[Rfam]
RNA sequence: AGCCUUUGUGUUGCCCGUUCACUUUUGUAAACUAGUGAAUGUGGUGUCAAAAAAGGCACAAAUAAAUACUUUGCAGCCUUUUCCUGCCCUUAAAUUUUAUAUUUUUGGUGUAGGAACUGCAUAAGUGACAGUU
Numbered sequence: 001a002g003c004c005u006u007u008g009u010g011u012u013g014c015c016c017g018u019u020c021a022c023u024u025u026u027g028u029a030a031a032c033u034a035g036u037g038a039a040u041g042u043g044g045u046g047u048c049a050a051a052a053a054a055g056g057c058a059c060a061a062a063u064a065a066a067u068a069c070u071u072u073g074c075a076g077c078c079u080u081u082u083c084c085u086g087c088c089c090u091u092a093a094a095u096u097u098u099a100u101a102u103u104u105u106u107g108g109u110g111u112a113g114g115a116a117c118u119g120c121a122u123a124a125g126u127g128a129c130a131g132u133u
Stems, first nucleotide, its partner, number of pairs: 002057006009049002012046004016041008068126004072121005082115006088108002092103002
A member of the RNA family "Small nucleolar RNA SNORA13" from Ictidomys tridecemlineatus, 133 nucleotides long. Clan: SNORA13 clan. It is one of the family's seed sequences. Taxonomically the source falls in Ictidomys (Eukaryota, Chordata, Vertebrata, Glires). Rfam's curators write: ACA13 is a member of the H/ACA class of snoRNA that guide the sites of modification of uridines to pseudouridines. The family has 50 seed sequences and 1,034 matches in Rfam 15.1. Its family is annotated with RNA processing and nucleolus in the Gene Ontology.